[Rfam]
RNA sequence: GCUUCACUUUAGGGGUGUUUCCCGGUGACCAACCGGGAGGCUGAGAUAAUACCCUCAGUACCUGACGCAGCUCAUACUGCCGGAGGGAAAAGUUACUGAUCUAUC
Number, nucleotide and partner (000 for none) at each position: 001g000002c000003u000004u000005c000006a093007c092008u091009u090010u089011a055012g054013g053014g052015g000016u049017g041018u040019u039020u038021c037022c036023c035024g034025g033026u032027g000028a000029c000030c000031a000032a026033c025034c024035g023036g022037g021038a020039g019040g018041c017042u000043g000044a000045g000046a000047u000048a000049a016050u000051a000052c014053c013054c012055u011056c000057a000058g000059u000060a000061c086062c085063u084064g000065a000066c000067g080068c079069a078070g077071c000072u000073c000074a000075u000076a000077c070078u069079g068080c067081c000082g000083g000084a063085g062086g061087g000088a000089a010090a009091a008092g007093u006094u000095a000096c000097u000098g000099a000100u000101c000102u000103a000104u000105c000
RNA: TPP riboswitch aptamer (THI element)